[Rfam]
RNA: Group II catalytic intron D1-D4-3
Organism: Desulfobacteraceae bacterium SEEP-SAG10
RNA sequence: GUCGCCGCGAGGCGAGGUCUGAAGGGCUGGAGCGAAGCGUAAGGCGAGCCGCAGGCGAGAGCGACCAAAGGGAGCGGCAACCCCGAGUGCAAAGCUAUGAUCCGACGAACAGAAAUGGCAUAUAAGGCCCAGUUUUCGGGUAAGUCAGCACAACAUAACGAAGCCUAGGGUUCAGGAGAUAGGGUAAAUGCUGCGGUUGUGUGGAGAAAGAUCACGUU
Numbered sequence: 001g002u003c004g005c006c007g008c009g010a011g012g013c014g015a016g017g018u019c020u021g022a023a024g025g026g027c028u029g030g031a032g033c034g035a036a037g038c039g040u041a042a043g044g045c046g047a048g049c050c051g052c053a054g055g056c057g058a059g060a061g062c063g064a065c066c067a068a069a070g071g072g073a074g075c076g077g078c079a080a081c082c083c084c085g086a087g088u089g090c091a092a093a094g095c096u097a098u099g100a101u102c103c104g105a106c107g108a109a110c111a112g113a114a115a116u117g118g119c120a121u122a123u124a125a126g127g128c129c130c131a132g133u134u135u136u137c138g139g140g141u142a143a144g145u146c147a148g149c150a151c152a153a154c155a156u157a158a159c160g161a162a163g164c165c166u167a168g169g170g171u172u173c174a175g176g177a178g179a180u181a182g183g184g185u186a187a188a189u190g191c192u193g194c195g196g197u198u199g200u201g202u203g204g205a206g207a208a209a210g211a212u213c214a215c216g217u218u
Stems, first nucleotide, its partner, number of pairs: 002015005083216001090210001095204005100198001102196003116193006127185003132180006138166004144159002147156001
Dot-bracket structure: .(((((....)))))...................................................................(......(....((((((.(((...........((((((.....(((..((((((((((..((.(........).))...))))........))))))..)))..))))))))).).))))).....).....)..